[Rfam]
RNA: Bacterial RNase P class A
Organism: Polaribacter aquimarinus
RNA sequence: AUAGCAGACUUAUCUUAUCGUCACAUUUUAAUGUGAAGGAAAGUCCGGACACCAAAGAGUAGCAUAGCGGAUAACAUCCGUCCAACGUGAGUUGAGGACAAGUGCAACAGAAAGCAAGUACAGUUAGGCUGUAGUGAAACCAGGUAAACUCUAUGCGGUGCAAUGCCAUGUAAAUUAGAUUUUGAGGGUUACUCGCUCGAUUCUAAAGGGUAGGCAGAUGGAUUCUAAGAGUAAUUUUAGAACUAGAUAAAUGAUAAGAACCUUUUUAAGGAUACAGAAUUCGGCUUAUUAGUCUGCUUUUUUA
Numbered sequence: 001a002u003a004g005c006a007g008a009c010u011u012a013u014c015u016u017a018u019c020g021u022c023a024c025a026u027u028u029u030a031a032u033g034u035g036a037a038g039g040a041a042a043g044u045c046c047g048g049a050c051a052c053c054a055a056a057g058a059g060u061a062g063c064a065u066a067g068c069g070g071a072u073a074a075c076a077u078c079c080g081u082c083c084a085a086c087g088u089g090a091g092u093u094g095a096g097g098a099c100a101a102g103u104g105c106a107a108c109a110g111a112a113a114g115c116a117a118g119u120a121c122a123g124u125u126a127g128g129c130u131g132u133a134g135u136g137a138a139a140c141c142a143g144g145u146a147a148a149c150u151c152u153a154u155g156c157g158g159u160g161c162a163a164u165g166c167c168a169u170g171u172a173a174a175u176u177a178g179a180u181u182u183u184g185a186g187g188g189u190u191a192c193u194c195g196c197u198c199g200a201u202u203c204u205a206a207a208g209g210g211u212a213g214g215c216a217g218a219u220g221g222a223u224u225c226u227a228a229g230a231g232u233a234a235u236u237u238u239a240g241a242a243c244u245a246g247a248u249a250a251a252u253g254a255u256a257a258g259a260a261c262c263u264u265u266u267u268a269a270g271g272a273u274a275c276a277g278a279a280u281u282c283g284g285c286u287u288a289u290u291a292g293u294c295u296g297c298u299u300u301u302u303u304a
Base pairs, nucleotide, nucleotide: 001300003298004297005296006295007294008293009292010291012289013259014258015257016256017255018254019253021036022035023034024033025032026031041287042286043285045284046283047282048281049280050160051159052158053157057194058193059192060191062156063155064154065153066152067081068080069079070078071077082096083094084093085092086091097151098150102149103148104145105144119133120132121131122130123129124128164216165215166214167213175206176205177204178203179202186198187197188196189195223242224241225240226239227238228237229236230235